[Rfam]
Shown here is a 135-nucleotide RNA from Tenebrionibacter intestinalis, a member of the family "RtT RNA". It scores 52 bits against the family's covariance model. By type it is a cis-regulatory element.
RNA sequence: UGAAAUGCAAGCGUGGGAGGGUGAGAACCCUCGACCAGGGUUCGACAACAGGCGUAGCCUGUUGGACAGACUCUGAGCCUGCGAAGAGGCUGCCCGCAGGGCGAGCUCCGCGAGUCAAUCCCUCCCUCACCGCCA
Numbered sequence: 001u002g003a004a005a006u007g008c009a010a011g012c013g014u015g016g017g018a019g020g021g022u023g024a025g026a027a028c029c030c031u032c033g034a035c036c037a038g039g040g041u042u043c044g045a046c047a048a049c050a051g052g053c054g055u056a057g058c059c060u061g062u063u064g065g066a067c068a069g070a071c072u073c074u075g076a077g078c079c080u081g082c083g084a085a086g087a088g089g090c091u092g093c094c095c096g097c098a099g100g101g102c103g104a105g106c107u108c109c110g111c112g113a114g115u116c117a118a119u120c121c122c123u124c125c126c127u128c129a130c131c132g133c134c135a
Stems, first nucleotide, its partner, number of pairs: 015126007022118001032103002035101002041098001043096002069090001071088003
Dot-bracket structure: ..............((((((((.........((.((....(.((........................(.(((............))).)....)).).))))..............).))))))).........